[Rfam]
RNA sequence: UUACGCAAAGGGGAAAACACAGUCCCGGUUGGUAGUCCGGGCGCGGCUUCAAGCAAGCUGCCAGUAACCUGCCUCCUUGGUUGUCCACCCUUUGCGGUUUAAAA
Number, nucleotide and partner (000 for none) at each position: 001u000002u000003a000004c096005g095006c094007a093008a092009a091010g090011g089012g000013g000014a000015a000016a000017a000018c000019a000020c000021a000022g042023u041024c000025c040026c039027g038028g037029u000030u000031g000032g000033u000034a000035g000036u000037c028038c027039g026040g025041g023042c022043g061044c060045g059046g058047c057048u056049u000050c000051a000052a000053g000054c000055a000056a048057g047058c046059u045060g044061c043062c000063a000064g000065u000066a000067a000068c000069c000070u000071g081072c080073c079074u000075c000076c000077u000078u000079g073080g072081u071082u000083g000084u000085c000086c000087a000088c000089c011090c010091u009092u008093u007094g006095c005096g004097g000098u000099u000100u000101a000102a000103a000104a000
azaaromatic riboswitch aptamer (yjdF RNA): a 104-nucleotide RNA sequence from Luoshenia tenuis. It scores 82 bits against the family's covariance model. The organism belongs to Luoshenia, within Bacteria.